Rfam assigns this 77-nucleotide RNA from Alligator mississippiensis to the family "Mammalian CPEB3 ribozyme".
RNA sequence: CGACCUUCCCUGAGACCCACAGCAGGAGCAUUCACAUUAUGGUCCCUGCCAGAUUCCUUGAAUCUGUGAAUUCAGCU
Numbered sequence: 001c002g003a004c005c006u007u008c009c010c011u012g013a014g015a016c017c018c019a020c021a022g023c024a025g026g027a028g029c030a031u032u033c034a035c036a037u038u039a040u041g042g043u044c045c046c047u048g049c050c051a052g053a054u055u056c057c058u059u060g061a062a063u064c065u066g067u068g069a070a071u072u073c074a075g076c077u
Stems, first nucleotide, its partner, number of pairs: 014045001017042002021077003025073003028040001030038001050066007
Overview
The family's consensus secondary structure is taken from published work.